[Rfam]
RNA: Selenocysteine insertion sequence 1
RNA sequence: CUCUGUUAAUGAUGUCUCUUCCUCUAAACCCUUUUAAGGACUGGGAGAGGCAGAGAAGCCCAGAG
Numbered sequence: 001c002u003c004u005g006u007u008a009a010u011g012a013u014g015u016c017u018c019u020u021c022c023u024c025u026a027a028a029c030c031c032u033u034u035u036a037a038g039g040a041c042u043g044g045g046a047g048a049g050g051c052a053g054a055g056a057a058g059c060c061c062a063g064a065g
Stems, first nucleotide, its partner, number of pairs: 001065005014051009030039003